This 53-nucleotide RNA from Naja naja belongs to the Rfam family "MAT2A 3'UTR stem loop C".
By type it is a cis-regulatory element.
The base pairs follow the family's consensus structure, which is taken from published work.
It scores 48 bits against the family's covariance model.
For this family Rfam cites "New families of human regulatory RNA structures identified by comparative analysis of vertebrate genomes" (Parker et al., Genome Res, 2011).

RNA sequence: GCAUUCUGAAGUCCUGGCAUAGCUACAGAGAAGCCAGGGGCCCUUCAGAGCAC
Numbered sequence: 001g002c003a004u005u006c007u008g009a010a011g012u013c014c015u016g017g018c019a020u021a022g023c024u025a026c027a028g029a030g031a032a033g034c035c036a037g038g039g040g041c042c043c044u045u046c047a048g049a050g051c052a053c
Base pairs, nucleotide, nucleotide: 001053004050005049006048007047008046009045012039013038014037015036016035017034018033020025